[Rfam]
Nucleotides: 125
Base pairs, nucleotide, nucleotide: 008084009083010082011081012080013026014025015024016023017022027055028054029053030052031051032050033049034048035047036046037045038044056079057078058077059076060075061074062073106125108123111121114118
Number, partner (000 for none) and nucleotide at each position: 001000a002000a003000a004000a005000a006000g007000g008084g009083c010082u011081u012080c013026u014025g015024u016023c017022a018000u019000g020000a021000g022017u023016g024015g025014c026013a027055c028054a029053c030052g031051u032050a033049g034048g035047g036046c037045a038044g039000c040000u041000u042000g043000u044038u045037u046036g047035c048034u049033c050032u051031a052030u053029g054028u055027g056079u057078g058077g059076a060075a061074u062073c063000a064000a065000c066000a067000u068000c069000a070000a071000g072000a073062g074061a075060u076059u077058u078057c079056a080012g081011a082010a083009g084008c085000a086000u087000a088000a089000u090000u091000u092000u093000u094000g095000u096000u097000g098000u099000u100000u101000g102000g103000u104000a105000a106125a107000u108123g109000u110000u111121g112000g113000u114118c115000c116000c117000g118114g119000u120000g121111c122000c123108c124000u125106u
U11 spliceosomal RNA: a 125-nucleotide RNA sequence from Erinaceus europaeus. Gene Ontology terms of the family: U11 snRNP, pre-mRNA 5'-splice site binding and mRNA 5'-splice site recognition. The family's RNA type in Rfam is spliceosomal small nuclear RNA.